RNA sequence: CGGAAGGUGCACUCCCAGACGGCCUCGCCGGAGACCAGCGCCUGCUCGCCGAAGUGGGCGCCGUCCGCGAGGAAGCCGAGCUCCGUCUCGUCGCCGUAGGGGCCGGUGCCGAUCUUCUCGACACGGCCGUGCGCGAGCAGGAACACCCGGUCGGUGACAUCGCCCGCGGUGGCGAUCGUCUCGCCCGCCGCGAACUCGCGCUGCUCGCACCGGUUGGCCAGCUCGGUGAGCGCGGCCUCGUCCUCGUAGUCCCGCAACGCGGGCAGCUCGCCCAGCUCGGCCGGGAUGACGGCCACCCGCUCGCCGGUCUGGACGAAGGUGAUCCUCCCGUCCCCCACCGAAUAGCUGAGCCGGCGGUUCACCCGGUACGUGCCGCCCUGGACCUGGACCCAAGGCAGCAUCCGCAGCAGCCAACGGGAGGUGAUCUCCUGCAUCUGCGGCACGGACUUGGUAGUGGUGGCCAAGUUGCGCGCGGCGGCUGUGCCGAGACUCUGCUGCGCACGGUUCUC
Numbered sequence: 001c002g003g004a005a006g007g008u009g010c011a012c013u014c015c016c017a018g019a020c021g022g023c024c025u026c027g028c029c030g031g032a033g034a035c036c037a038g039c040g041c042c043u044g045c046u047c048g049c050c051g052a053a054g055u056g057g058g059c060g061c062c063g064u065c066c067g068c069g070a071g072g073a074a075g076c077c078g079a080g081c082u083c084c085g086u087c088u089c090g091u092c093g094c095c096g097u098a099g100g101g102g103c104c105g106g107u108g109c110c111g112a113u114c115u116u117c118u119c120g121a122c123a124c125g126g127c128c129g130u131g132c133g134c135g136a137g138c139a140g141g142a143a144c145a146c147c148c149g150g151u152c153g154g155u156g157a158c159a160u161c162g163c164c165c166g167c168g169g170u171g172g173c174g175a176u177c178g179u180c181u182c183g184c185c186c187g188c189c190g191c192g193a194a195c196u197c198g199c200g201c202u203g204c205u206c207g208c209a210c211c212g213g214u215u216g217g218c219c220a221g222c223u224c225g226g227u228g229a230g231c232g233c234g235g236c237c238u239c240g241u242c243c244u245c246g247u248a249g250u251c252c253c254g255c256a257a258c259g260c261g262g263g264c265a266g267c268u269c270g271c272c273c274a275g276c277u278c279g280g281c282c283g284g285g286a287u288g289a290c291g292g293c294c295a296c297c298c299g300c301u302c303g304c305c306g307g308u309c310u311g312g313a314c315g316a317a318g319g320u321g322a323u324c325c326u327c328c329c330g331u332c333c334c335c336c337a338c339c340g341a342a343u344a345g346c347u348g349a350g351c352c353g354g355c356g357g358u359u360c361a362c363c364c365g366g367u368a369c370g371u372g373c374c375g376c377c378c379u380g381g382a383c384c385u386g387g388a389c390c391c392a393a394g395g396c397a398g399c400a401u402c403c404g405c406a407g408c409a410g411c412c413a414a415c416g417g418g419a420g421g422u423g424a425u426c427u428c429c430u431g432c433a434u435c436u437g438c439g440g441c442a443c444g445g446a447c448u449u450g451g452u453a454g455u456g457g458u459g460g461c462c463a464a465g466u467u468g469c470g471c472g473c474g475g476c477g478g479c480u481g482u483g484c485c486g487a488g489a490c491u492c493u494g495c496u497g498c499g500c501a502c503g504g505u506u507c508u509c
Base pairs, nucleotide, nucleotide: 006390007389008388010386011385015381016380018328021325022324025322026321027320028319029318035312036311037310038309040308041307042306047303048300049299051297054233055232059228060227061226062225063224065111067109068108075103077102083096085094086093118221120219122217127212129210130209131206133204134203135202140197142196148192149191153189154188155187156186160183161178162177165174166173167172234294235293236292237291240290241289242288244286245285252280253279254278256277258275259271260270261269331340353377354376355375356374357373360372361371362370391431392430394428395427397425399423400422401421403418405416407415437476438475440473443470444469446467447465448464449463450462451461452460477508478507480503481502482501484499487496488495
The family of this 509-nucleotide RNA from Streptomyces sp. SDr-06 is "Saccharopolyspora sRNA 350". For this family Rfam cites "Prediction and characterization of small non-coding RNAs related to secondary metabolites in Saccharopolyspora erythraea" (Liu et al., PLoS One, 2013). It is annotated as an antisense RNA. Rfam 15.1 lists 1,170 matches to the family in 705 species.